[Rfam]
This 140-nucleotide RNA from Salmonella enterica belongs to the Rfam family "opuB ncRNA motif". Rfam classes the family as a cis-regulatory element.
RNA sequence: UAAACAUCACGCUCCGCUGGAAUCCUUCCCAACCUGUUGCUAUAGCUCAAAGCACCCUGCCGGAACAUGGCAUAACAACACGCGGCGUCUUUACGUCGCCAUAACACAUGCAAACAGGGAGACACACCGCAAUGCACACC
Numbered sequence: 001u002a003a004a005c006a007u008c009a010c011g012c013u014c015c016g017c018u019g020g021a022a023u024c025c026u027u028c029c030c031a032a033c034c035u036g037u038u039g040c041u042a043u044a045g046c047u048c049a050a051a052g053c054a055c056c057c058u059g060c061c062g063g064a065a066c067a068u069g070g071c072a073u074a075a076c077a078a079c080a081c082g083c084g085g086c087g088u089c090u091u092u093a094c095g096u097c098g099c100c101a102u103a104a105c106a107c108a109u110g111c112a113a114a115c116a117g118g119g120a121g122a123c124a125c126a127c128c129g130c131a132a133u134g135c136a137c138a139c140c
Stems, first nucleotide, its partner, number of pairs: 013119003019029003038108002058072005082099005
Source information:
The sequence is in the family's curated seed alignment. From the family's description: opuB ncRNA motif was reported as a strong cis regulatory motif candidate, with potential to be a cis regulatory riboswitch type, it have been identified in mostly from species of Enterobacteriaceae. The motif have been recognised mostly downstream-adjacent gene, opuB, annotated as coding for a proline/glycine ABC-transporter, whereas other related genes are known to be relevant to the transport of compatible solutes such as glycine, betaine, and choline of an uncharacterized ABC transporter with strong homology to amino acid transporters.